[Rfam]
RNA sequence: CACCAAAGGGGAAAAGCUAUACGCUUAUGGCUUUAUAUAUCAUAAUCGCUAUAACCUUUCCCGUUUGGAA
Numbered sequence: 001c002a003c004c005a006a007a008g009g010g011g012a013a014a015a016g017c018u019a020u021a022c023g024c025u026u027a028u029g030g031c032u033u034u035a036u037a038u039a040u041c042a043u044a045a046u047c048g049c050u051a052u053a054a055c056c057u058u059u060c061c062c063g064u065u066u067g068g069a070a
Base pairs, nucleotide, nucleotide: 003068004067005066006065007064009062010061011060013058014057018053019052020051021050025045026044027043028042029041
RNA: mir-965 microRNA precursor family